Rfam assigns this 64-nucleotide sequence from Handroanthus impetiginosus to the family "Plastid-clpP 5UTR RNA". The match comes from Rfam's covariance-model search (58 bits). Lineage of the source: Eukaryota > Viridiplantae > Euphyllophyta > Gunneridae > Handroanthus. Rfam's curators write: Plastid clpP is a non-coding RNA (ncRNA) recognised in plastids. It was found in the prime untranslated region (5UTR) of a protease complex subunit (clpP) in plastids, suggesting a posible cis-regulatory function. By type it is a cis-regulatory element. A reference for the family is Richter et al. (2023), "Retrograde signaling in plants: A critical review focusing on the GUN pathway and beyond", Plant Commun.

RNA sequence: AAUUAUGUUCGUAGGAACAAAGAGAAGCAGAUUUAUUUUAUACUCAAUAAGUGUAUACGCACCA
Numbered sequence: 001a002a003u004u005a006u007g008u009u010c011g012u013a014g015g016a017a018c019a020a021a022g023a024g025a026a027g028c029a030g031a032u033u034u035a036u037u038u039u040a041u042a043c044u045c046a047a048u049a050a051g052u053g054u055a056u057a058c059g060c061a062c063c064a
Stems, first nucleotide, its partner, number of pairs: 003022002006019005051060003